[Rfam]
RNA sequence: GAAUAGUGAUGGAUUGAUGGCAGGCCUUUCUCUGUUGGCCCCUCAUACUAUAUCAAUGCCAGAGGAGCGUGCAGCCCUGAACCACUGCCCAGCCUCCUCACUGGUGGGCUGUGAGCACUGAAGGCGGCUAUACAGGG
Numbered sequence: 001g002a003a004u005a006g007u008g009a010u011g012g013a014u015u016g017a018u019g020g021c022a023g024g025c026c027u028u029u030c031u032c033u034g035u036u037g038g039c040c041c042c043u044c045a046u047a048c049u050a051u052a053u054c055a056a057u058g059c060c061a062g063a064g065g066a067g068c069g070u071g072c073a074g075c076c077c078u079g080a081a082c083c084a085c086u087g088c089c090c091a092g093c094c095u096c097c098u099c100a101c102u103g104g105u106g107g108g109c110u111g112u113g114a115g116c117a118c119u120g121a122a123g124g125c126g127g128c129u130a131u132a133c134a135g136g137g
Stems, first nucleotide, its partner, number of pairs: 001059001003057002006053003017046004023040002025037001073129004083120002088115001090111006
RNA: Small nucleolar RNA SNORA42/SNORA80 family
Organism: Canis lupus